[Rfam]
RNA sequence: AAACCAGGUGAUGAAAUUGGAGUUCUAAUUCUUACGACGGUCAUCUGAUAGUGGCUGAUGUAAUAGAUCCAAUCUUUCUGAUGGUU
Numbered sequence: 001a002a003a004c005c006a007g008g009u010g011a012u013g014a015a016a017u018u019g020g021a022g023u024u025c026u027a028a029u030u031c032u033u034a035c036g037a038c039g040g041u042c043a044u045c046u047g048a049u050a051g052u053g054g055c056u057g058a059u060g061u062a063a064u065a066g067a068u069c070c071a072a073u074c075u076u077u078c079u080g081a082u083g084g085u086u
Stems, first nucleotide, its partner, number of pairs: 001086002004083001049057003

The family of this 86-nucleotide RNA sequence from Aquilegia coerulea is "Small nucleolar RNA Z161/Z228".
It is annotated as a C/D-box small nucleolar RNA.
Rfam links the family to the GO terms RNA processing and nucleolus.
A reference for the family is Chen et al. (2003), "The high diversity of snoRNAs in plants: identification and comparative study of 120 snoRNA genes from Oryza sativa", Nucleic Acids Res.